The record is a 113-nucleotide RNA, which matches "Betaproteobacteria-1 RNA" in Rfam. By type it is a small RNA. Pairs were carried over by alignment from the consensus structure, which is taken from published work.
RNA sequence: CGCCAGCUUGUCAGGGUAACGGGCGAGGGCUGGGGAAAUCCGCAAUCGUGGGGUAGUCCUGAGAGGCGGAAAGGGUGGCGAAGGAAGCGCCCUAGGGCAGACGGCUUCCGGGU
Numbered sequence: 001c002g003c004c005a006g007c008u009u010g011u012c013a014g015g016g017u018a019a020c021g022g023g024c025g026a027g028g029g030c031u032g033g034g035g036a037a038a039u040c041c042g043c044a045a046u047c048g049u050g051g052g053g054u055a056g057u058c059c060u061g062a063g064a065g066g067c068g069g070a071a072a073g074g075g076u077g078g079c080g081a082a083g084g085a086a087g088c089g090c091c092c093u094a095g096g097g098c099a100g101a102c103g104g105c106u107u108c109c110g111g112g113u
Stems, first nucleotide, its partner, number of pairs: 001035001003033005008027002023049003039070005056098004072093005083109006